c-di-AMP riboswitch aptamer (ydaO/yuaA leader): a 137-nucleotide sequence from Desulfitobacterium hafniense.

RNA sequence: AAGAAAUGUGGGCUGAAUCCGGACCGUGUGUCUGGAACGGGGGAUAAUCUUUUGGGGUGAAUCGCAGUCAUGCGUAGGGCUUGCACCUUUUUGCCCGAAUCCGUCAACUAACCUCGUAAGCGACGAAAGGUGGAAAA
Numbered sequence: 001a002a003g004a005a006a007u008g009u010g011g012g013c014u015g016a017a018u019c020c021g022g023a024c025c026g027u028g029u030g031u032c033u034g035g036a037a038c039g040g041g042g043g044a045u046a047a048u049c050u051u052u053u054g055g056g057g058u059g060a061a062u063c064g065c066a067g068u069c070a071u072g073c074g075u076a077g078g079g080c081u082u083g084c085a086c087c088u089u090u091u092u093g094c095c096c097g098a099a100u101c102c103g104u105c106a107a108c109u110a111a112c113c114u115c116g117u118a119a120g121c122g123a124c125g126a127a128a129g130g131u132g133g134a135a136a137a
Base pairs, nucleotide, nucleotide: 012121013120014119018036019035020034021033022032023031037117038116039115040114041113042112045054046053055102056101057100063074064073065072066071077096078095079094080093
This family represents a conserved RNA structure found upstream of the ydaO and yuaA genes in Bacillus subtilis and related genes in other bacteria. Rfam's curators put it in the seed alignment.